RNA sequence: UUCUUAUUAAGAGAGGUGGAGGGACUGGCCCUUCGAAGCCUCAGCAACCUUAUGUGAUAUAAAGGUGCUAAAUCCUGUAGGAUCUAAAAGUCCUAAUAGAUAAGAA
Numbered sequence: 001u002u003c004u005u006a007u008u009a010a011g012a013g014a015g016g017u018g019g020a021g022g023g024a025c026u027g028g029c030c031c032u033u034c035g036a037a038g039c040c041u042c043a044g045c046a047a048c049c050u051u052a053u054g055u056g057a058u059a060u061a062a063a064g065g066u067g068c069u070a071a072a073u074c075c076u077g078u079a080g081g082a083u084c085u086a087a088a089a090g091u092c093c094u095a096a097u098a099g100a101u102a103a104g105a106a
Base pairs, nucleotide, nucleotide: 001106002105003104004103005102006101007100008099013042014041015040016039017038021031022030023029025077027075028074043069044068045067046066048065049064050062051061052060053059073098078095079094080093081092082091083090
Background
Rfam assigns this 106-nucleotide RNA sequence from Bacillus cereus to the family "SAM riboswitch aptamer (S box leader)". Lineage of the source: Bacteria > Bacillati > Caryophanales > Bacillaceae > Bacillus cereus.